[Rfam]
Annotation:
The record is a 113-nucleotide RNA from Populus tomentosa, which matches "MIR6462 microRNA precursor family" in Rfam. Rfam 15.1 lists 40 matches to the family in 6 species. Its family is annotated with RISC complex and miRNA-mediated post-transcriptional gene silencing in the Gene Ontology. Pairs were carried over by alignment from the consensus structure, which was predicted with RNAalifold. Lineage of the source: Eukaryota > Euphyllophyta > rosids > fabids > Populus.
RNA sequence: GGAUGAGCGAGGGGCAAAAAUGGCAUAAGAGAGAUGUACAGGGGUAGGGAAGGGGAAGAGAGAUCGAUAUCUACGACCCUUUUCUCUUAUGCAUUUUUGUCCCUCGCCGGUCU
Numbered sequence: 001g002g003a004u005g006a007g008c009g010a011g012g013g014g015c016a017a018a019a020a021u022g023g024c025a026u027a028a029g030a031g032a033g034a035u036g037u038a039c040a041g042g043g044g045u046a047g048g049g050a051a052g053g054g055g056a057a058g059a060g061a062g063a064u065c066g067a068u069a070u071c072u073a074c075g076a077c078c079c080u081u082u083u084c085u086c087u088u089a090u091g092c093a094u095u096u097u098u099g100u101c102c103c104u105c106g107c108c109g110g111u112c113u
Base pairs, nucleotide, nucleotide: 002112003111004110007107008106010104011103012102013101014100015099016098017097018096019095020094021093022092024091025090026089027088028087029086030085031084032083033082034081043079044078055077058074059072060071061068